[Rfam]
RNA sequence: GAGCAAUGAAGAGAAAUUCGCUUUUGUGAUGUUUGGGUUCAUCUCUGUCUCUGAUCUUACGAUGAAAAACUGCGCUUCUGAGCUC
Numbered sequence: 001g002a003g004c005a006a007u008g009a010a011g012a013g014a015a016a017u018u019c020g021c022u023u024u025u026g027u028g029a030u031g032u033u034u035g036g037g038u039u040c041a042u043c044u045c046u047g048u049c050u051c052u053g054a055u056c057u058u059a060c061g062a063u064g065a066a067a068a069a070c071u072g073c074g075c076u077u078c079u080g081a082g083c084u085c
Stems, first nucleotide, its partner, number of pairs: 001085004

This 85-nucleotide sequence from Gossypium barbadense belongs to the Rfam family "small nucleolar RNA snoR114". A reference for the family is Chen and Wu (2009), "Mining small RNA sequencing data: a new approach to identify small nucleolar RNAs in Arabidopsis", Nucleic Acids Res. It scores 72 bits against the family's covariance model. Its family is annotated with nucleolus and RNA processing in the Gene Ontology.